[Rfam]
RNA sequence: GACCGAACAGGCAAACCCGGGGCGACCCGGGGACGCAAAGCCACAGGUCUCCCAGAGGGAGAUGGCUGGGUUGCCGAAA
Numbered sequence: 001g002a003c004c005g006a007a008c009a010g011g012c013a014a015a016c017c018c019g020g021g022g023c024g025a026c027c028c029g030g031g032g033a034c035g036c037a038a039a040g041c042c043a044c045a046g047g048u049c050u051c052c053c054a055g056a057g058g059g060a061g062a063u064g065g066c067u068g069g070g071u072u073g074c075c076g077a078a079a
Base pairs, nucleotide, nucleotide: 003076011036012035016031017030018029019028020027021026034065039072040071041070042069044068045067046066047063048062049061

Record summary
This 79-nucleotide RNA sequence from Bipolaricaulis sanaerobius belongs to the Rfam family "c-di-GMP-I-GGC riboswitch aptamer". The match comes from Rfam's covariance-model search (64 bits). Taxonomically the source falls in Bipolaricaulis (SeqCode) (Bacteria, Candidatus Bipolaricaulota, Bipolaricaulia (SeqCode), Bipolaricaulales (SeqCode)). The family has 40 seed sequences and 1,298 matches in Rfam 15.1. The family is grouped with related families in Rfam's "c-di-GMP_I riboswitch clan".